A member of the RNA family "PhrS" from Pseudomonas knackmussii, 208 nucleotides long. The source organism's lineage runs through Bacteria, Pseudomonadati, Gammaproteobacteria, Pseudomonadales and Pseudomonas knackmussii. Pairs were carried over by alignment from the consensus structure, which was predicted with CMfinder.

[Rfam]
RNA sequence: AUCUUCCAAACGCAAAGAGAAACAGGAGGCCAGCAUCAUGUUCAUCGACGAAGUGGUUCUCGCCGGCAUUGUCACCGUUGGCCUGAUGGUCCUGUUCUUUGGUGGAGUCGGAUAUUUCAUCUGGAAGGACUCGCACAAGCGCGGUUGACCUUCCGGAUACACAGAGCACGCAAGGCACUUGGGGCGACUUCGGUCGCCCGUUUUUUUU
Numbered sequence: 001a002u003c004u005u006c007c008a009a010a011c012g013c014a015a016a017g018a019g020a021a022a023c024a025g026g027a028g029g030c031c032a033g034c035a036u037c038a039u040g041u042u043c044a045u046c047g048a049c050g051a052a053g054u055g056g057u058u059c060u061c062g063c064c065g066g067c068a069u070u071g072u073c074a075c076c077g078u079u080g081g082c083c084u085g086a087u088g089g090u091c092c093u094g095u096u097c098u099u100u101g102g103u104g105g106a107g108u109c110g111g112a113u114a115u116u117u118c119a120u121c122u123g124g125a126a127g128g129a130c131u132c133g134c135a136c137a138a139g140c141g142c143g144g145u146u147g148a149c150c151u152u153c154c155g156g157a158u159a160c161a162c163a164g165a166g167c168a169c170g171c172a173a174g175g176c177a178c179u180u181g182g183g184g185c186g187a188c189u190u191c192g193g194u195c196g197c198c199c200g201u202u203u204u205u206u207u208u
Base pairs, nucleotide, nucleotide: 013101053063054062055061080091081090082089083088166176167175169174182199183198184197185196186195187194188193